[Rfam]
RNA sequence: UUAUAACUGAAUAAUUUACCUAAGACUCAGGUGGCCAUGUUUGGCCUUAAUAUAUUGCCUGCCGAGGAACGUAUGAAACUAUUCGUGUCUCAGAGUCUUUCUGGGGUACGAAUUUUUUUAUGGUUCA
Numbered sequence: 001u002u003a004u005a006a007c008u009g010a011a012u013a014a015u016u017u018a019c020c021u022a023a024g025a026c027u028c029a030g031g032u033g034g035c036c037a038u039g040u041u042u043g044g045c046c047u048u049a050a051u052a053u054a055u056u057g058c059c060u061g062c063c064g065a066g067g068a069a070c071g072u073a074u075g076a077a078a079c080u081a082u083u084c085g086u087g088u089c090u091c092a093g094a095g096u097c098u099u100u101c102u103g104g105g106g107u108a109c110g111a112a113u114u115u116u117u118u119u120a121u122g123g124u125u126c127a
Stems, first nucleotide, its partner, number of pairs: 028061005033046003082112013
The record is a 127-nucleotide sequence from Pediococcus pentosaceus, which matches "Ribosomal protein L10 leader" in Rfam. The family's RNA type in Rfam is cis-regulatory leader. This family is a putative r-protein leader autoregulatory structure found in B. subtilis and other low-GC Gram-positive bacteria. It is located in the 5' untranslated regions of mRNAs encoding ribosomal proteins L10 and L12 (rplJ-rplL). A Rho-independent transcription terminator structure that is probably involved in regulation is included at the 3' end.